Rfam assigns this 76-nucleotide RNA from Ameiurus melas to the family "mir-7563 microRNA precursor family". The match comes from Rfam's covariance-model search (84 bits). Its family is annotated with miRNA-mediated post-transcriptional gene silencing and RISC complex in the Gene Ontology. Taxonomically the source falls in Ameiurus (Eukaryota, Vertebrata, Neopterygii, Otomorpha).
[Rfam]
RNA sequence: ACCACAUACUUACCUACUAUAUAGCAGCUGAGAUACAUGUAUUACGCCUACUAUAUAGCAGGUAAGUAUGUGGUUU
Numbered sequence: 001a002c003c004a005c006a007u008a009c010u011u012a013c014c015u016a017c018u019a020u021a022u023a024g025c026a027g028c029u030g031a032g033a034u035a036c037a038u039g040u041a042u043u044a045c046g047c048c049u050a051c052u053a054u055a056u057a058g059c060a061g062g063u064a065a066g067u068a069u070g071u072g073g074u075u076u
Stems, first nucleotide, its partner, number of pairs: 001074015017058008026049002029046002033042003